[Rfam]
RNA sequence: UUUGCACACAAAACCCAAAGAUCAUUUUAUCACGUUCUGAUGAUCUUGUCUGUUGUGCAGAAAUAAAUUGUACCUUGUCGCCUUUCUAGAGCUGAUCUGUUUUUGAAAGUGAAAUAAAAGGUACUACAGAC
Numbered sequence: 001u002u003u004g005c006a007c008a009c010a011a012a013a014c015c016c017a018a019a020g021a022u023c024a025u026u027u028u029a030u031c032a033c034g035u036u037c038u039g040a041u042g043a044u045c046u047u048g049u050c051u052g053u054u055g056u057g058c059a060g061a062a063a064u065a066a067a068u069u070g071u072a073c074c075u076u077g078u079c080g081c082c083u084u085u086c087u088a089g090a091g092c093u094g095a096u097c098u099g100u101u102u103u104u105g106a107a108a109g110u111g112a113a114a115u116a117a118a119a120g121g122u123a124c125u126a127c128a129g130a131c
Stems, first nucleotide, its partner, number of pairs: 002060007020045007029036001070124007082109005088103005
A member of the RNA family "Small nucleolar RNA SNORA68" from Xenopus laevis, 131 nucleotides long.
A reference for the family is Ganot et al. (1997), "The family of box ACA small nucleolar RNAs is defined by an evolutionarily conserved secondary structure and ubiquitous sequence elements essential for RNA accumulation", Genes Dev.
The family's RNA type in Rfam is H/ACA-box small nucleolar RNA.
U68 is a member of the H/ACA class of small nucleolar RNAs (snoRNAs) which act as guides in the the modification of uridines to pseudouridines.
A search with the family's covariance model found it, with a score of 94 bits.
Taxonomically the source falls in Xenopus (Eukaryota, Eumetazoa, Euteleostomi, Dipnotetrapodomorpha).